[Rfam]
RNA: c-di-GMP-I riboswitch aptamer
RNA sequence: UGACUGUAACGGCAAACCGGGGGAAACCCCGGGACGCAAAGCAAGGGAGCUAAGAUGGCAAAGCCGCCUGCAAGACCGCGGAGGGAGAAUACGCCAUUAUGCCAGCCCAGCUGCCAGA
Numbered sequence: 001u002g003a004c005u006g007u008a009a010c011g012g013c014a015a016a017c018c019g020g021g022g023g024a025a026a027c028c029c030c031g032g033g034a035c036g037c038a039a040a041g042c043a044a045g046g047g048a049g050c051u052a053a054g055a056u057g058g059c060a061a062a063g064c065c066g067c068c069u070g071c072a073a074g075a076c077c078g079c080g081g082a083g084g085g086a087g088a089a090u091a092c093g094c095c096a097u098u099a100u101g102c103c104a105g106c107c108c109a110g111c112u113g114c115c116a117g118a
Stems, first nucleotide, its partner, number of pairs: 012037002017032006040112003045108003049102002055097004